Overview: Rfam assigns this 100-nucleotide RNA from Halobellus limi to the family "L4-Archaeoglobi ribosomal protein leades". On this family, see Eckert and Weinberg, BMC Microbiol 2020: "Discovery of 20 novel ribosomal leader candidates in bacteria and archaea". The source organism's lineage runs through Archaea, Methanobacteriota, Halobacteriales, Haloferacaceae and Halobellus. The base pairs follow the family's consensus structure, which is taken from published work. It is annotated as a cis-regulatory leader.
[Rfam]
Nucleotides: 100
Base pairs, nucleotide, nucleotide: 001100002099003098004097009090010089011088012087013086015041016040017039018038023035024034025033026032027031043084044083045082046081051077052076053075
Number, partner (000 for none) and nucleotide at each position: 001100c002099u003098g004097a005000c006000g007000g008000c009090c010089g011088c012087g013086u014000u015041c016040g017039g018038g019000u020000c021000a022000a023035u024034u025033g026032c027031g028000a029000a030000c031027u032026g033025c034024a035023a036000c037000a038018c039017c040016c041015g042000g043084u044083c045082u046081c047000g048000c049000u050000g051077c052076u053075c054000g055000c056000a057000c058000c059000u060000c061000c062000g063000u064000c065000g066000a067000u068000g069000g070000a071000g072000g073000u074000g075053g076052a077051g078000g079000a080000g081046g082045g083044g084043a085000c086013g087012c088011g089010c090009g091000u092000c093000g094000c095000c096000a097004u098003c099002a100001g